The record is an 82-nucleotide sequence from Callorhinchus milii, which matches "mir-132 microRNA precursor family" in Rfam.
The match comes from Rfam's covariance-model search (68 bits).
Pairs were carried over by alignment from the consensus structure, which was predicted with RNAalifold.
Taxonomically the source falls in Callorhinchus (Eukaryota, Gnathostomata, Chondrichthyes, Callorhinchidae).

RNA sequence: AGUCACCAGCACCUUGGCUCUAGACUGAUUACUGUGUGUGUGUGUCUGAGUAACAGUCUACAGUCAUGGCUACUGAGGGUUG
Numbered sequence: 001a002g003u004c005a006c007c008a009g010c011a012c013c014u015u016g017g018c019u020c021u022a023g024a025c026u027g028a029u030u031a032c033u034g035u036g037u038g039u040g041u042g043u044g045u046c047u048g049a050g051u052a053a054c055a056g057u058c059u060a061c062a063g064u065c066a067u068g069g070c071u072a073c074u075g076a077g078g079g080u081u082g
Stems, first nucleotide, its partner, number of pairs: 012069002015066004023058005029053005